[Rfam]
RNA sequence: UGUAUCAGUGAUGAUAGUCUGGCUCCCUCUACUGAGACAUUGUGAGGAUAACUGCCAUCGUUACCCAAAUACUGAGAUGCA
Dot-bracket structure: ((((((.....................................................................))))))
RNA: Small nucleolar RNA SNORD100